Rfam assigns this 132-nucleotide RNA sequence from Halopseudomonas bauzanensis to the family "ALIL pseudoknot".

RNA sequence: UGCGUAUUUUGCCCAGGCGGAGCCCGACUGGCCGGCACCCCGGCGCCGCAACAAACCCUGAACGCCUUCGUUGACGAGUACCGUGACCGCUACGGAGUCGAGUCGAUCUGUCGGGUAAUCCAGAUCGCUCCG
Numbered sequence: 001u002g003c004g005u006a007u008u009u010u011g012c013c014c015a016g017g018c019g020g021a022g023c024c025c026g027a028c029u030g031g032c033c034g035g036c037a038c039c040c041c042g043g044c045g046c047c048g049c050a051a052c053a054a055a056c057c058c059u060g061a062a063c064g065c066c067u068u069c070g071u072u073g074a075c076g077a078g079u080a081c082c083g084u085g086a087c088c089g090c091u092a093c094g095g096a097g098u099c100g101a102g103u104c105g106a107u108c109u110g111u112c113g114g115g116u117a118a119u120c121c122a123g124a125u126c127g128c129u130c131c132g
Stems, first nucleotide, its partner, number of pairs: 016047004093132005104127002107124004
Dot-bracket structure: ...............((((........................)))).............................................(((((......((.((((..........)))).)))))))
The family's RNA type in Rfam is cis-regulatory element. The base pairs follow the family's consensus structure, which is taken from published work.